Background:
Rfam assigns this 153-nucleotide RNA from Bacillus thermotolerans to the family "Manganese Mn2+ riboswitch aptamer (yybP-ykoY)". A search with the family's covariance model found it, with a score of 46 bits. Taxonomically the source falls in Bacillus (Bacteria, Bacillati, Caryophanales, Bacillaceae).
RNA sequence: ACGCAAGUCAAAGGGGAGUAGCGUUAGGUAAUUUACCUAAAACAAAGUCGUCAAUUCAUGGGUUUAUCAUCCAUCGGCUUUGUUGACAUGAGUGUGACUGACCAUGUUUAGCAAGACCUUUGCCUUUUUUAAGGCAAAGGUCUUUUUGUGUUU
Dot-bracket structure: ........................(((.........))).((((((((((.......(((((.......))))))))))))))).....................................................................